[Rfam]
RNA: M-box riboswitch aptamer (ykoK leader)
Organism: Cytobacillus kochii
RNA sequence: AUGAAUCCUCGUUAGGUGAGGCUCCUGUAUAGAGAUAUGCUACUGCCCAAAAAUGUCCAAAGACGCCAAUGGGUCAACAGGAACCAUCGACAUAAGGUGGUUUUUAAUGUAGCUGGUAUUUACCUAUGCUGUACAGUGCUAAAGCUCUACGAAUGGAGGGGUAAU
Numbered sequence: 001a002u003g004a005a006u007c008c009u010c011g012u013u014a015g016g017u018g019a020g021g022c023u024c025c026u027g028u029a030u031a032g033a034g035a036u037a038u039g040c041u042a043c044u045g046c047c048c049a050a051a052a053a054u055g056u057c058c059a060a061a062g063a064c065g066c067c068a069a070u071g072g073g074u075c076a077a078c079a080g081g082a083a084c085c086a087u088c089g090a091c092a093u094a095a096g097g098u099g100g101u102u103u104u105u106a107a108u109g110u111a112g113c114u115g116g117u118a119u120u121u122a123c124c125u126a127u128g129c130u131g132u133a134c135a136g137u138g139c140u141a142a143a144g145c146u147c148u149a150c151g152a153a154u155g156g157a158g159g160g161g162u163a164a165u
Stems, first nucleotide, its partner, number of pairs: 006160005011150002013095001015146003020140003025136008039113005045074005054065004080104004086098003115124003